This 76-nucleotide sequence from Rhizorhabdus wittichii belongs to the Rfam family "Fluoride riboswitch aptamer (crcB RNA motif)".

RNA sequence: GUUGCGGGAGGCAAUGGAUUCCUGCCUGGCACAUCGCCGAACCGCCCUCGCACGGGACGAUGAUUCCUACCGGCGC
Numbered sequence: 001g002u003u004g005c006g007g008g009a010g011g012c013a014a015u016g017g018a019u020u021c022c023u024g025c026c027u028g029g030c031a032c033a034u035c036g037c038c039g040a041a042c043c044g045c046c047c048u049c050g051c052a053c054g055g056g057a058c059g060a061u062g063a064u065u066c067c068u069a070c071c072g073g074c075g076c
Base pairs, nucleotide, nucleotide: 010026011025012024013023016067017066018065020063021062045056046055047054
Rfam 15.1 lists 2,293 matches to the family in 1,982 species.